[Rfam]
RNA sequence: ACACGCCGGGUGACAACCGGCCACGACGGGGAUGAUGGACGUAGCCUAUUUUGCCGGUUUCAGGCUGCGGCACCAACGCAUUGGCACGCGUUUUGUCUAACCCGUUCCCGGC
Numbered sequence: 001a002c003a004c005g006c007c008g009g010g011u012g013a014c015a016a017c018c019g020g021c022c023a024c025g026a027c028g029g030g031g032a033u034g035a036u037g038g039a040c041g042u043a044g045c046c047u048a049u050u051u052u053g054c055c056g057g058u059u060u061c062a063g064g065c066u067g068c069g070g071c072a073c074c075a076a077c078g079c080a081u082u083g084g085c086a087c088g089c090g091u092u093u094u095g096u097c098u099a100a101c102c103c104g105u106u107c108c109c110g111g112c
Stems, first nucleotide, its partner, number of pairs: 006111004011023002014020001025106006034097004040069007070085002074083001